[Rfam]
RNA sequence: GUCGGUGUCGUCACGGUUCAGCCGCAGUCCGUGCCCGUCGUCACCGAGCUGCCGGGCCGCACCAGCGCAUUCCUCGUCGCGCAGGUACGCGCGCGGGUCGACGGCAUCGUGCUGCGCCGCGAGUUCACAGAAGGCACGCAGGUCAAGGCCGGCCAGCGUCUGUACAAGAUCGA
Dot-bracket structure: ..(((((((((.((((.(..((((.....)).))..))))).).)))..)))))((((..(((.(.(..(.(.((..(((((......)))))((.(.((.(((((...))))))).).))........)).))..).).)))...))))......(((((.....))).)).
Numbered sequence: 001g002u003c004g005g006u007g008u009c010g011u012c013a014c015g016g017u018u019c020a021g022c023c024g025c026a027g028u029c030c031g032u033g034c035c036c037g038u039c040g041u042c043a044c045c046g047a048g049c050u051g052c053c054g055g056g057c058c059g060c061a062c063c064a065g066c067g068c069a070u071u072c073c074u075c076g077u078c079g080c081g082c083a084g085g086u087a088c089g090c091g092c093g094c095g096g097g098u099c100g101a102c103g104g105c106a107u108c109g110u111g112c113u114g115c116g117c118c119g120c121g122a123g124u125u126c127a128c129a130g131a132a133g134g135c136a137c138g139c140a141g142g143u144c145a146a147g148g149c150c151g152g153c154c155a156g157c158g159u160c161u162g163u164a165c166a167a168g169a170u171c172g173a
Stems, first nucleotide, its partner, number of pairs: 003054005008047003011043001013041004018037001021034002023031002055150004061143003065139001067137001070134001072133001074131002078093005094121002097118001099116002102114005157172002159169003